[Rfam]
RNA sequence: GUUGGCUGGAGUCGCGUCUAGCUGUAGCACCUAGUGGUGAACCGAAUGGCAGAAGGGUCAAAAUGCAGGUUUACAUUCUUGGCGCUCGCACGUCGAUUGCAGUGUCUCUCUUGAACUCGGUGUCAACAUUCUGGCCUGAGCUGAAGCUCUGGGUUAGUAGGUUGUUAAAUAGCGGGGUACGCCCGAGGCUGGUAACAGAGCAGGGAAAACUCGCAGUACUGAGUGGCAAGGAGGUAGCACGCAUGAGUGAUGUUGUGUCAAGGGUGCUGUGUUUUGAUUCGACUGUCGUUUAU
Numbered sequence: 001g002u003u004g005g006c007u008g009g010a011g012u013c014g015c016g017u018c019u020a021g022c023u024g025u026a027g028c029a030c031c032u033a034g035u036g037g038u039g040a041a042c043c044g045a046a047u048g049g050c051a052g053a054a055g056g057g058u059c060a061a062a063a064u065g066c067a068g069g070u071u072u073a074c075a076u077u078c079u080u081g082g083c084g085c086u087c088g089c090a091c092g093u094c095g096a097u098u099g100c101a102g103u104g105u106c107u108c109u110c111u112u113g114a115a116c117u118c119g120g121u122g123u124c125a126a127c128a129u130u131c132u133g134g135c136c137u138g139a140g141c142u143g144a145a146g147c148u149c150u151g152g153g154u155u156a157g158u159a160g161g162u163u164g165u166u167a168a169a170u171a172g173c174g175g176g177g178u179a180c181g182c183c184c185g186a187g188g189c190u191g192g193u194a195a196c197a198g199a200g201c202a203g204g205g206a207a208a209a210c211u212c213g214c215a216g217u218a219c220u221g222a223g224u225g226g227c228a229a230g231g232a233g234g235u236a237g238c239a240c241g242c243a244u245g246a247g248u249g250a251u252g253u254u255g256u257g258u259c260a261a262g263g264g265u266g267c268u269g270u271g272u273u274u275u276g277a278u279u280c281g282a283c284u285g286u287c288g289u290u291u292a293u
Stems, first nucleotide, its partner, number of pairs: 001042003004023007028039003044291009055280014074266012089249003093245001098243003102240004106233002109231005115224009124164004129159001131157008139148003165171001172214005182205003189198003
Dot-bracket structure: ((((((((((......)))))))....(((......)))))).(((((((((..((((((((((((((.....((((((((((((...(((.(....(((.((((((.(((((.(((((((((((((.(.(((((((((((....))).)))))))).).))))(.....)(((((.....(((....(((....)))....)))....))))).)))))))))..)))))))...))))))).).))).....))))))))))))))))))))))))))..)))))))))..

The family of this 293-nucleotide RNA sequence from Paraglomus brasilianum is "Metazoan signal recognition particle RNA". The family's consensus secondary structure is taken from published work. A reference for the family is Batey et al. (2000), "Crystal structure of the ribonucleoprotein core of the signal recognition particle", Science. Gene Ontology terms of the family: signal recognition particle, endoplasmic reticulum targeting and SRP-dependent cotranslational protein targeting to membrane, signal sequence recognition. The match comes from Rfam's covariance-model search (134 bits). The family has 91 seed sequences and 383,523 matches in Rfam 15.1. It is annotated as a non-coding RNA gene. The organism belongs to Paraglomus, within Eukaryota.